[Rfam]
RNA sequence: AUAUCCCCGCAAAUUCAUUCUGUUUGCAUUCAAACAGUCAUUCAACCCCAAAAAUCUAGACCAAAUAUUGUCUUCCCUUCUUGGCACAAACAAAGAAGAGACGCGGGAUAAAGAUACUCCGACGAUUGAUACAAUAUUUAUCAACGGGAGGUCUUACUUUUUUU
Number, nucleotide and partner (000 for none) at each position: 001a000002u000003a000004u000005c000006c107007c106008c105009g104010c103011a000012a000013a000014u000015u000016c000017a000018u000019u000020c037021u036022g035023u034024u033025u032026g000027c000028a000029u000030u000031c000032a025033a024034a023035c022036a021037g020038u000039c000040a000041u000042u000043c000044a000045a000046c000047c000048c000049c000050a000051a000052a000053a000054a000055u000056c000057u000058a000059g000060a000061c000062c000063a000064a000065a000066u000067a000068u000069u000070g000071u000072c084073u083074u000075c000076c000077c098078u097079u096080c000081u094082u093083g073084g072085c000086a000087c000088a000089a000090a000091c000092a000093a082094a081095g000096a079097a078098g077099a000100g000101a000102c000103g010104c009105g008106g007107g006108a000109u000110a000111a155112a154113g153114a152115u151116a000117c000118u149119c148120c147121g000122a000123c146124g145125a000126u144127u143128g142129a141130u140131a139132c000133a000134a000135u000136a000137u000138u000139u131140a130141u129142c128143a127144a126145c124146g123147g120148g119149a118150g000151g115152u114153c113154u112155u111156a000157c000158u000159u000160u000161u000162u000163u000164u000
RNA: Ciliate telomerase RNA